[Rfam]
RNA: LOOT RNA
RNA sequence: UGCCUAACCCUCGUGAGCUAAACCUCCGAGGUAUGGCAGAAAAAUCCCGCUACAGGAUAAAGAGCUCGUCGUCAGCUCACCUGUAGCGGGUCAUAUCCGAAAGGGUAUGGGUAGCCAAAAGCUAUC
Numbered sequence: 001u002g003c004c005u006a007a008c009c010c011u012c013g014u015g016a017g018c019u020a021a022a023c024c025u026c027c028g029a030g031g032u033a034u035g036g037c038a039g040a041a042a043a044a045u046c047c048c049g050c051u052a053c054a055g056g057a058u059a060a061a062g063a064g065c066u067c068g069u070c071g072u073c074a075g076c077u078c079a080c081c082u083g084u085a086g087c088g089g090g091u092c093a094u095a096u097c098c099g100a101a102a103g104g105g106u107a108u109g110g111g112u113a114g115c116c117a118a119a120a121g122c123u124a125u126c
Stems, first nucleotide, its partner, number of pairs: 001038004009031005015026003046090011062078005092109007110126006